[Rfam]
This 97-nucleotide RNA from Wenjunlia tyrosinilytica belongs to the Rfam family "Glycine riboswitch aptamer". From the family's description: This family represents the bacterial glycine riboswitch. Rfam links the family to the GO term glycine biosynthetic process.
RNA sequence: AGACCCCAUGCGGGAGAGUCCUCCGUCCCAGCGGCGGAGGCGCCGAAGGAGCAACUCCUCCCCGGAAUCUCUCAGGCACCCGUACCGCACGGACGAG
Numbered sequence: 001a002g003a004c005c006c007c008a009u010g011c012g013g014g015a016g017a018g019u020c021c022u023c024c025g026u027c028c029c030a031g032c033g034g035c036g037g038a039g040g041c042g043c044c045g046a047a048g049g050a051g052c053a054a055c056u057c058c059u060c061c062c063c064g065g066a067a068u069c070u071c072u073c074a075g076g077c078a079c080c081c082g083u084a085c086c087g088c089a090c091g092g093a094c095g096a097g
Stems, first nucleotide, its partner, number of pairs: 006092002009089005020040006042077003045073002049071003055065002